[Rfam]
RNA sequence: CUUGGUAUGUGUGACUGGCGUAAACGUGGGGAACCACGAGGGAGCACAUAUUUUAUACAGCCGUACGCCUGGGCAGAGGUA
Number, nucleotide and partner (000 for none) at each position: 001c000002u000003u000004g052005g051006u050007a049008u048009g047010u046011g045012u044013g000014a000015c041016u040017g069018g068019c067020g066021u065022a000023a000024a000025c000026g037027u036028g035029g034030g000031g000032a000033a000034c029035c028036a027037c026038g000039a000040g016041g015042g000043a000044g012045c011046a010047c009048a008049u007050a006051u005052u004053u000054u000055a000056u000057a000058c076059a000060g074061c073062c072063g000064u000065a021066c020067g019068c018069c017070u000071g000072g062073g061074c060075a000076g058077a000078g000079g000080u000081a000

This 81-nucleotide sequence from Paenibacillus prosopidis belongs to the Rfam family "ZMP/ZTP riboswitch aptamer (pfl RNA motif)". The base pairs follow the family's consensus structure, which is taken from published work. A search with the family's covariance model found it, with a score of 63 bits.